[Rfam]
RNA sequence: GAGAAGUGAGGAGAAUUCUAUCACAGUCUGAUUUUCUGUGACUGCUAAAGAUCCAACUCUGAUCUCACUCCGCAA
Numbered sequence: 001g002a003g004a005a006g007u008g009a010g011g012a013g014a015a016u017u018c019u020a021u022c023a024c025a026g027u028c029u030g031a032u033u034u035u036c037u038g039u040g041a042c043u044g045c046u047a048a049a050g051a052u053c054c055a056a057c058u059c060u061g062a063u064c065u066c067a068c069u070c071c072g073c074a075a
Base pairs, nucleotide, nucleotide: 001066002065003064004063
The record is a 75-nucleotide RNA sequence from Callorhinchus milii, which matches "Small nucleolar RNA SNORD19" in Rfam. Pairs were carried over by alignment from the consensus structure. The family is grouped with related families in Rfam's "SNORD19 clan". NCBI's taxonomy places the organism under Eukaryota, Bilateria, Chordata, Vertebrata, Callorhinchus. By type it is a C/D-box small nucleolar RNA.